[Rfam]
RNA sequence: ACACUUCACAUUAAGCGGGCGGGGCCUAUAUAGGUCCUGCCCGUUUUUGCGGGCUAUGGCGAUAAAUUGCGCUGUGCAAUAGGCACAACGGACCCGGGGGCAGUACCCGGCGGCUCCACCAUAAGGCCCUGAUCUCAGGGCAUUCUGACGGGGCCGAACCAGGAUCGACGUGUGUUGAAAGACUUCGUUUUCGCCCGGGCUGAGUAACCCGUAAAACUGUUCACAACACACAAGUGCCAAUGACAAUGAAGCACUCGCUCUUGCUGCGUAAUCUGACGGCCUAACGGCCUGAUCUUACAAAGCUAAAGCGCGGUUGGACCCACCGGGCAACAGAAGCGGAUUCC
Numbered sequence: 001a002c003a004c005u006u007c008a009c010a011u012u013a014a015g016c017g018g019g020c021g022g023g024g025c026c027u028a029u030a031u032a033g034g035u036c037c038u039g040c041c042c043g044u045u046u047u048u049g050c051g052g053g054c055u056a057u058g059g060c061g062a063u064a065a066a067u068u069g070c071g072c073u074g075u076g077c078a079a080u081a082g083g084c085a086c087a088a089c090g091g092a093c094c095c096g097g098g099g100g101c102a103g104u105a106c107c108c109g110g111c112g113g114c115u116c117c118a119c120c121a122u123a124a125g126g127c128c129c130u131g132a133u134c135u136c137a138g139g140g141c142a143u144u145c146u147g148a149c150g151g152g153g154c155c156g157a158a159c160c161a162g163g164a165u166c167g168a169c170g171u172g173u174g175u176u177g178a179a180a181g182a183c184u185u186c187g188u189u190u191u192c193g194c195c196c197g198g199g200c201u202g203a204g205u206a207a208c209c210c211g212u213a214a215a216a217c218u219g220u221u222c223a224c225a226a227c228a229c230a231c232a233a234g235u236g237c238c239a240a241u242g243a244c245a246a247u248g249a250a251g252c253a254c255u256c257g258c259u260c261u262u263g264c265u266g267c268g269u270a271a272u273c274u275g276a277c278g279g280c281c282u283a284a285c286g287g288c289c290u291g292a293u294c295u296u297a298c299a300a301a302g303c304u305a306a307a308g309c310g311c312g313g314u315u316g317g318a319c320c321c322a323c324c325g326g327g328c329a330a331c332a333g334a335a336g337c338g339g340a341u342u343c344c
Stems, first nucleotide, its partner, number of pairs: 039054005058195005069188003074183002084174003088171003094110005111156007196211004201223003207218001311325004316342002319339002
RNA: Alphaproteobacteria transfer-messenger RNA
Organism: Altererythrobacter xiamenensis